[Rfam]
RNA sequence: GAUAGGUCCCUGUCGCUGCCGUGAUUGGACACUGACGCACAGUCAACUAGCCUGGUGCAGGCGGAUCUCCGGUACGUCCCGCACGGGCCGUACCGGCCGGGGACGGUCCGAGCCACGAGGGGGGAGGCUCGGACCGUCCUUC
Numbered sequence: 001g002a003u004a005g006g007u008c009c010c011u012g013u014c015g016c017u018g019c020c021g022u023g024a025u026u027g028g029a030c031a032c033u034g035a036c037g038c039a040c041a042g043u044c045a046a047c048u049a050g051c052c053u054g055g056u057g058c059a060g061g062c063g064g065a066u067c068u069c070c071g072g073u074a075c076g077u078c079c080c081g082c083a084c085g086g087g088c089c090g091u092a093c094c095g096g097c098c099g100g101g102g103a104c105g106g107u108c109c110g111a112g113c114c115a116c117g118a119g120g121g122g123g124g125a126g127g128c129u130c131g132g133a134c135c136g137u138c139c140u141u142c
Stems, first nucleotide, its partner, number of pairs: 001014005015051004021032003033045004093100002102138013116123001
Shown here is a 142-nucleotide RNA from Streptomyces solincola, a member of the family "Streptomyces RNA 3920". By type it is a small RNA. Taxonomically the source falls in Streptomyces (Bacteria, Actinomycetota, Actinomycetes, Streptomycetaceae). The match comes from Rfam's covariance-model search (102 bits). About the family: Identified by deep sequencing of transcriptome at the end of exponential growth phase. Sequencing size consistent with northern blot size. Streptomyces specific.